[Rfam]
RNA: Bacterial RNase P class B
Organism: Acholeplasma brassicae
RNA sequence: AGUAGAAGGUAAUCGAGCCACUUAGGUGGUUAGGAAAGUCCAUGCUAGCACAACCUGUGAUGGUUGUAGUGUUUGUGCCUAAGGAAACAAUAACUUAGGGUACAUCUUCGGAUGUAACGGCGGCAAUCUUGCUAAGACUUAGGUUAUGCAGGAACCAUAAAGUGCCACAGAAACGAAUCACUUGGAAACAAGUGAAUGAAACGCGGUAAACCCCUCAAGCUAGUAACCCAAAUUUUGGUAGGGGCACUUUGAAAGCAGAACAGAAUGCAUUUCAGAGCUAGAAAUAGAGAUAAAUGAUUACACUCGAAAGAGAACAGAACAUGGCUUAUGCAU
Numbered sequence: 001a002g003u004a005g006a007a008g009g010u011a012a013u014c015g016a017g018c019c020a021c022u023u024a025g026g027u028g029g030u031u032a033g034g035a036a037a038g039u040c041c042a043u044g045c046u047a048g049c050a051c052a053a054c055c056u057g058u059g060a061u062g063g064u065u066g067u068a069g070u071g072u073u074u075g076u077g078c079c080u081a082a083g084g085a086a087a088c089a090a091u092a093a094c095u096u097a098g099g100g101u102a103c104a105u106c107u108u109c110g111g112a113u114g115u116a117a118c119g120g121c122g123g124c125a126a127u128c129u130u131g132c133u134a135a136g137a138c139u140u141a142g143g144u145u146a147u148g149c150a151g152g153a154a155c156c157a158u159a160a161a162g163u164g165c166c167a168c169a170g171a172a173a174c175g176a177a178u179c180a181c182u183u184g185g186a187a188a189c190a191a192g193u194g195a196a197u198g199a200a201a202c203g204c205g206g207u208a209a210a211c212c213c214c215u216c217a218a219g220c221u222a223g224u225a226a227c228c229c230a231a232a233u234u235u236u237g238g239u240a241g242g243g244g245c246a247c248u249u250u251g252a253a254a255g256c257a258g259a260a261c262a263g264a265a266u267g268c269a270u271u272u273c274a275g276a277g278c279u280a281g282a283a284a285u286a287g288a289g290a291u292a293a294a295u296g297a298u299u300a301c302a303c304u305c306g307a308a309a310g311a312g313a314a315c316a317g318a319a320c321a322u323g324g325c326u327u328a329u330g331c332a333u
Base pairs, nucleotide, nucleotide: 004333007329009301010300011299012298013297014296016031017030018029019028020027021026036327037326038325040324041323042322043321044320045223046222047221048220049219050067051066052065053064054063055062073218074217075216077214078099079098080097081096082095083094100118101116102115103114104113105112106111119213120212122156123155129151130150131149132148136145137144138143162211163210164207165206166205179194180193181192182191183190184189227243228242229241247277248276249275250274251273252272253271278287279286280285303312304311305310